[Rfam]
RNA sequence: GGGCCAGCUUAGCCUAGCGGUUACUUCGGAGCAAUCUUUGCAGAUUCACCAAUUGCUUAACGGCAGUUCGAUACCCCGCGGGUGCUGUCUGGCUUUUUU
Numbered sequence: 001g002g003g004c005c006a007g008c009u010u011a012g013c014c015u016a017g018c019g020g021u022u023a024c025u026u027c028g029g030a031g032c033a034a035u036c037u038u039u040g041c042a043g044a045u046u047c048a049c050c051a052a053u054u055g056c057u058u059a060a061c062g063g064c065a066g067u068u069c070g071a072u073a074c075c076c077c078g079c080g081g082g083u084g085c086u087g088u089c090u091g092g093c094u095u096u097u098u099u
Stems, first nucleotide, its partner, number of pairs: 002094006012083004017079004026071004

Shown here is a 99-nucleotide sequence from Podarcis muralis, a member of the family "Vault RNA".
The base pairs follow the family's consensus structure, which is taken from published work.
Taxonomically the source falls in Podarcis (Eukaryota, Eumetazoa, Unidentata, Lacertidae).
This family of RNAs are found as part of the enigmatic vault ribonucleoprotein complex. The complex consists of a major vault protein (MVP), two minor vault proteins (VPARP and TEP1), and several small untranslated RNA molecules. It has been suggested that the vault complex is involved in drug resistance.